[Rfam]
RNA sequence: GGAGUUGGCCAGGCAGUCGCCGCCGGGCUCGUUUGACGAGUGCCGGGGGAGGAAAGUCCGGGCUCCAUAGGGCAGGGUGCCAGGUAACGCCUGGGCGGCGCGAGCCGACGGAAAGUGCAGCAGAGAGUAGACCGCCUAAGCAGCGCAAGCUGCCGGCAAGGGUGAAAGGGUGCGGUAAGAGCGCACCGCACGGCUGGCAACAGUCCGUGGCACGGUAAACCCCACCCGGAGCAAGACCGAAUAGGCCCCCGAUGCUGCGGCCCGCAGUGGGGGCGGGUAGGUCGCUUGAGCCCAGUGGUAACGCUGGGCCUAGAUGAAUGGCUGCCCACGACAGAACCCGGCUUAUCGGCCGACUCCCAUC
Number, nucleotide and partner (000 for none) at each position: 001g357002g356003a355004g354005u353006u352007g351008g350009c349010c348011a346012g326013g325014c324015a323016g322017u321018c320019g000020c049021c048022g000023c046024c045025g044026g043027g000028c000029u000030c000031g000032u000033u000034u000035g000036a000037c000038g000039a000040g000041u000042g000043c026044c025045g024046g023047g000048g021049g020050a000051g000052g000053a000054a344055a343056g342057u000058c341059c340060g339061g338062g337063c231064u230065c229066c228067a000068u000069a000070g263071g262072g261073c260074a000075g227076g226077g225078u224079g223080c094081c093082a092083g091084g090085u000086a000087a000088c000089g000090c084091c083092u082093g081094g080095g109096c107097g106098g105099c104100g000101c000102g000103a000104g099105c098106c097107g096108a000109c095110g222111g221112a000113a000114a000115g220116u219117g216118c215119a000120g000121c000122a000123g000124a000125g000126a000127g000128u000129a000130g000131a000132c161133c160134g157135c156136c155137u000138a000139a000140g153141c152142a151143g150144c149145g000146c000147a000148a000149g144150c143151u142152g141153c140154c000155g136156g135157c134158a000159a000160g133161g132162g000163u000164g000165a000166a000167a000168g000169g187170g186171u185172g184173c183174g182175g000176u000177a000178a000179g000180a000181g000182c174183g173184c172185a171186c170187c169188g211189c209190a208191c207192g206193g205194c203195u202196g201197g000198c000199a000200a000201c196202a195203g194204u000205c193206c192207g191208u190209g189210g000211c188212a000213c000214g000215g118216u117217a000218a000219a116220c115221c111222c110223c079224a078225c077226c076227c075228g066229g065230a064231g063232c000233a000234a000235g283236a282237c281238c280239g000240a000241a000242u000243a000244g000245g274246c273247c272248c271249c270250c269251g000252a000253u000254g268255c267256u266257g265258c264259g000260g073261c072262c071263c070264g258265c257266a256267g255268u254269g250270g249271g248272g247273g246274c245275g000276g000277g000278u000279a000280g238281g237282u236283c235284g000285c000286u000287u000288g000289a000290g309291c308292c307293c306294a305295g304296u303297g302298g000299u000300a000301a000302c297303g296304c295305u294306g293307g292308g291309c290310c000311u000312a000313g000314a000315u000316g000317a000318a000319u000320g018321g017322c016323u015324g014325c013326c012327c000328a000329c000330g000331a000332c000333a000334g000335a000336a000337c062338c061339c060340g059341g058342c056343u055344u054345a000346u011347c000348g010349g009350c008351c007352g006353a005354c004355u003356c002357c001358c000359a000360u000361c000

This 361-nucleotide sequence from Modicisalibacter xianhensis belongs to the Rfam family "Bacterial RNase P class A". For this family Rfam cites "The Ribonuclease P Database" (Brown, Nucleic Acids Res, 1999). By type it is a ribozyme.